[Rfam]
RNA sequence: CCUACCAUUCCUCUGGUAGUAGCCUAGGAAUGCAGGCGAAGCUGGUAGCAGCACCGUCUGGAGCCAUUCUGACAAUGUAUCACCACCCCGAAAGGGUGAAGCCGACGCCGUGAGGUCGAAGCGGAACUGCAAGCAUCACGCGGUGGGGAGC
Numbered sequence: 001c002c003u004a005c006c007a008u009u010c011c012u013c014u015g016g017u018a019g020u021a022g023c024c025u026a027g028g029a030a031u032g033c034a035g036g037c038g039a040a041g042c043u044g045g046u047a048g049c050a051g052c053a054c055c056g057u058c059u060g061g062a063g064c065c066a067u068u069c070u071g072a073c074a075a076u077g078u079a080u081c082a083c084c085a086c087c088c089c090g091a092a093a094g095g096g097u098g099a100a101g102c103c104g105a106c107g108c109c110g111u112g113a114g115g116u117c118g119a120a121g122c123g124g125a126a127c128u129g130c131a132a133g134c135a136u137c138a139c140g141c142g143g144u145g146g147g148g149a150g151c
Stems, first nucleotide, its partner, number of pairs: 002019006028069005033060006041052004084098005101122001103121001108115002126144005

Group II catalytic intron D1-D4-7: a 151-nucleotide RNA sequence from Paraburkholderia humisilvae. Its family is annotated with Group II intron splicing in the Gene Ontology. The source organism's lineage runs through Bacteria, Pseudomonadota, Betaproteobacteria, Burkholderiales and Paraburkholderia. From the family's description: Group II introns are found in rRNA, tRNA and mRNA of organelles in fungi, plants and protists, and also in mRNA in bacteria. For this family Rfam cites "The ins and outs of group II introns" (Bonen and Vogel, Trends Genet, 2001).